[Rfam]
Record summary: Shown here is an 85-nucleotide sequence, a member of the family "c-di-GMP-II-GAG riboswitch aptamer". Rfam's curators put it in the seed alignment. A reference for the family is Weinberg et al. (2017), "Bioinformatic analysis of riboswitch structures uncovers variant classes with altered ligand specificity", Proc Natl Acad Sci U S A. Gene Ontology terms of the family: cyclic-di-GMP binding and regulation of gene expression. The base pairs follow the family's consensus structure, which is taken from published work.
RNA sequence: GUACGCGUGGGAGGCUCUGACACGCGGUCCAAACCCCGGCCGCCGGGACCGCGCUGAGCUACUGGCGAGACCGACCUGCGCGAGG
Numbered sequence: 001g002u003a004c005g006c007g008u009g010g011g012a013g014g015c016u017c018u019g020a021c022a023c024g025c026g027g028u029c030c031a032a033a034c035c036c037c038g039g040c041c042g043c044c045g046g047g048a049c050c051g052c053g054c055u056g057a058g059c060u061a062c063u064g065g066c067g068a069g070a071c072c073g074a075c076c077u078g079c080g081c082g083a084g085g
Base pairs, nucleotide, nucleotide: 002084004082005081006080007079008078009077010076011075013060014059015058023053024052025051026050027049028048029047038072039071041067042066043065044064